[Rfam]
RNA sequence: UGGUGCCCAACGUGGGGCUGGAUACGGAGUAUCCAGUGAGGGAAGAAGACGUCCCCAAAGGAACGCGUUCCACAAAAAUUUUCACUCUGGACUCACCACGGGAACCUGCCUCGGCCACAACCAGAAGUAAGUACAGACGUCUGAUUAUGGGACAAGAAAUAAGCAGGCACGAACUUUAUGUUAAGCAAUUGCAGGAUGCCUUAAGGAUGCAAGGAGUAAAGGUUAAAAUAGAAGAUCUAUUGAGAUUCUUUGAAUUUAUUAAGGAAACCUGUCCUU
Numbered sequence: 001u002g003g004u005g006c007c008c009a010a011c012g013u014g015g016g017g018c019u020g021g022a023u024a025c026g027g028a029g030u031a032u033c034c035a036g037u038g039a040g041g042g043a044a045g046a047a048g049a050c051g052u053c054c055c056c057a058a059a060g061g062a063a064c065g066c067g068u069u070c071c072a073c074a075a076a077a078a079u080u081u082u083c084a085c086u087c088u089g090g091a092c093u094c095a096c097c098a099c100g101g102g103a104a105c106c107u108g109c110c111u112c113g114g115c116c117a118c119a120a121c122c123a124g125a126a127g128u129a130a131g132u133a134c135a136g137a138c139g140u141c142u143g144a145u146u147a148u149g150g151g152a153c154a155a156g157a158a159a160u161a162a163g164c165a166g167g168c169a170c171g172a173a174c175u176u177u178a179u180g181u182u183a184a185g186c187a188a189u190u191g192c193a194g195g196a197u198g199c200c201u202u203a204a205g206g207a208u209g210c211a212a213g214g215a216g217u218a219a220a221g222g223u224u225a226a227a228a229u230a231g232a233a234g235a236u237c238u239a240u241u242g243a244g245a246u247u248c249u250u251u252g253a254a255u256u257u258a259u260u261a262a263g264g265a266a267a268c269c270u271g272u273c274c275u276u
Stems, first nucleotide, its partner, number of pairs: 006029001008027001012025003037046001084128003087124002093119001097113001100110002136153001140151004160203003163199003210252008220238005261276005

Rfam assigns this 276-nucleotide RNA from Nannospalax galili to the family "Mason-Pfizer monkey virus packaging signal". The family's RNA type in Rfam is cis-regulatory element. Rfam describes the family as follows. This family represents a group of sequences that are related to the Mason-Pfizer monkey virus (MPMV) packaging signal. The packaging signal is located in the 5' UTR and is required for specific RNA encapsidation.